[Rfam]
RNA sequence: GGCCUAAAGCAUCCGUAGCCUGUUCUGUAGGUCUUAUGUUAAAACCAAUUGCUUAACAAUUGGACUGCAUGAGAUACCACAAAACUAGGAGGCGGGAGAGGUGGACGGUACUCCACGGGUAGUGGUAAAAUGCUCUGAUCCGUGGAAGACCACCAGUGGCGAAGGCGGUCCACCAGAACGCGCUCGACGGUGAGGGAUGAAAGCUGGGGUAGCGAACCGGAUUAGAUACCCGGGUAGUCCCAGCUGUAAACGAUGCAAGCUAGGUGAUGGAUUAGCCACGUGUUAAUCCAGUGCCGCAGGGAAGCCGUUAAGCUUGCCGCCUGGGGAGUACGGUCGCAAGGCUGAAACUUAAAGGAAU
Numbered sequence: 001g002g003c004c005u006a007a008a009g010c011a012u013c014c015g016u017a018g019c020c021u022g023u024u025c026u027g028u029a030g031g032u033c034u035u036a037u038g039u040u041a042a043a044a045c046c047a048a049u050u051g052c053u054u055a056a057c058a059a060u061u062g063g064a065c066u067g068c069a070u071g072a073g074a075u076a077c078c079a080c081a082a083a084a085c086u087a088g089g090a091g092g093c094g095g096g097a098g099a100g101g102u103g104g105a106c107g108g109u110a111c112u113c114c115a116c117g118g119g120u121a122g123u124g125g126u127a128a129a130a131u132g133c134u135c136u137g138a139u140c141c142g143u144g145g146a147a148g149a150c151c152a153c154c155a156g157u158g159g160c161g162a163a164g165g166c167g168g169u170c171c172a173c174c175a176g177a178a179c180g181c182g183c184u185c186g187a188c189g190g191u192g193a194g195g196g197a198u199g200a201a202a203g204c205u206g207g208g209g210u211a212g213c214g215a216a217c218c219g220g221a222u223u224a225g226a227u228a229c230c231c232g233g234g235u236a237g238u239c240c241c242a243g244c245u246g247u248a249a250a251c252g253a254u255g256c257a258a259g260c261u262a263g264g265u266g267a268u269g270g271a272u273u274a275g276c277c278a279c280g281u282g283u284u285a286a287u288c289c290a291g292u293g294c295c296g297c298a299g300g301g302a303a304g305c306c307g308u309u310a311a312g313c314u315u316g317c318c319g320c321c322u323g324g325g326g327a328g329u330a331c332g333g334u335c336g337c338a339a340g341g342c343u344g345a346a347a348c349u350u351a352a353a354g355g356a357a358u
Base pairs, nucleotide, nucleotide: 001321002320003319009318011198012197013196014195016192018191019190020189022085023084024083026081027080028079030078031077032074033073034072035071036070037069038068039067045063046062047061048060049059050058051057089185090184091183092181093180094179100174101173102172103171104170105169106168107151108150112146113145114144115143116142117141118140122133123132124131159166160165203244204243205242206241207240208239212238213237217233218232219231220230255317256316257315258314259313260312263295264294265293266292268290269289270288271287272286273285274284275283276282299306300305323350324349325348332343333342334341335340

Rfam assigns this 358-nucleotide part of an RNA from uncultured marine crenarchaeote AD1000-325-A12 to the family "Archaeal small subunit ribosomal RNA". The base pairs follow the family's consensus structure, which is taken from published work. The sequence is in the family's curated seed alignment. The family has 86 seed sequences and 709 matches in Rfam 15.1. The organism belongs to Nitrosopumilales, within Archaea. A reference for the family is Yusupov et al. (2001), "Crystal structure of the ribosome at 5.5 A resolution", Science.